Rfam assigns this 106-nucleotide sequence from Streptomyces zhaozhouensis to the family "Streptomyces-metK RNA". By type it is a small RNA. It scores 47 bits against the family's covariance model.
[Rfam]
RNA sequence: GUGGAUCACUCUGCCCGGAGGGCCCUCUGCGGAUACACUGUGCGAUGCCGAUCCCGGUCCCACCGGGCUCGGAAGCAUAGUCAGCAGCCGCUGCAACCCCAGGGAG
Number, nucleotide and partner (000 for none) at each position: 001g000002u000003g000004g000005a000006u000007c000008a000009c000010u000011c000012u000013g000014c000015c000016c000017g000018g000019a000020g000021g000022g000023c000024c000025c000026u000027c000028u000029g000030c000031g000032g000033a000034u000035a000036c000037a000038c000039u000040g000041u000042g000043c000044g000045a000046u074047g000048c072049c071050g070051a069052u000053c000054c066055c065056g064057g063058u062059c000060c000061c000062a058063c057064c056065g055066g054067g000068c000069u051070c050071g049072g048073a000074a046075g000076c000077a000078u000079a000080g000081u000082c093083a092084g091085c090086a000087g000088c000089c000090g085091c084092u083093g082094c000095a000096a000097c000098c000099c000100c000101a000102g000103g000104g000105a000106g000